[Rfam]
The record is a 76-nucleotide RNA sequence, which matches "c-di-GMP-I-GGC riboswitch aptamer" in Rfam. The family's consensus secondary structure is taken from published work.
RNA sequence: UAAGACAAGGCCAAACCUGCCGGAAGGCAGGGACGGAAAACCACGGGUCUUUGUAAAGAAAGCCGGGUUACCUUAC
Number, nucleotide and partner (000 for none) at each position: 001u000002a000003a073004g072005a000006c000007a000008a000009g000010g000011c036012c035013a000014a000015a000016c031017c030018u029019g028020c027021c026022g000023g000024a000025a000026g021027g020028c019029a018030g017031g016032g000033a000034c062035g012036g011037a000038a000039a069040a068041c067042c066043a000044c065045g064046g063047g000048u059049c058050u000051u000052u000053g000054u000055a000056a000057a000058g049059a048060a000061a000062g034063c046064c045065g044066g042067g041068u040069u039070a000071c000072c004073u003074u000075a000076c000
Record summary: Its family is annotated with cyclic-di-GMP binding in the Gene Ontology.